[Rfam]
RNA sequence: AGUUGGAAGCUCAAGGCCACAGCAGGAGUGCUCGUGGCUUUGUCAGAUUCCAACAAAUCUGUGGAUUCUGCU
Numbered sequence: 001a002g003u004u005g006g007a008a009g010c011u012c013a014a015g016g017c018c019a020c021a022g023c024a025g026g027a028g029u030g031c032u033c034g035u036g037g038c039u040u041u042g043u044c045a046g047a048u049u050c051c052a053a054c055a056a057a058u059c060u061g062u063g064g065a066u067u068c069u070g071c072u
Stems, first nucleotide, its partner, number of pairs: 013040002016038003021072007028035002044061006
The family of this 72-nucleotide RNA sequence from Alligator sinensis is "Mammalian CPEB3 ribozyme". Its family is annotated with RNA nuclease activity in the Gene Ontology. The family's consensus secondary structure is taken from published work. The match comes from Rfam's covariance-model search (39 bits). Lineage of the source: Eukaryota > Teleostomi > Tetrapoda > Archelosauria > Alligator.